Shown here is an 84-nucleotide sequence from Ardeotis kori, a member of the family "Small nucleolar RNA SNORD53/SNORD92". The literature on the family includes a 1996 paper in Cell by Kiss-Laszlo et al., "Site-specific ribose methylation of preribosomal RNA: a novel function for small nucleolar RNAs". Pairs were carried over by alignment from the consensus structure.

RNA sequence: AUGCAGUGAUGAUCAUUUAAAUGGUGGUUUCAACUCACUGAUUAUUGAAUGAAGACGUGAAUUUCCUUGGUUGUGUCUGAGCAU
Numbered sequence: 001a002u003g004c005a006g007u008g009a010u011g012a013u014c015a016u017u018u019a020a021a022u023g024g025u026g027g028u029u030u031c032a033a034c035u036c037a038c039u040g041a042u043u044a045u046u047g048a049a050u051g052a053a054g055a056c057g058u059g060a061a062u063u064u065c066c067u068u069g070g071u072u073g074u075g076u077c078u079g080a081g082c083a084u
Stems, first nucleotide, its partner, number of pairs: 001084004
Gene Ontology terms of the family: RNA processing and nucleolus. It scores 50 bits against the family's covariance model.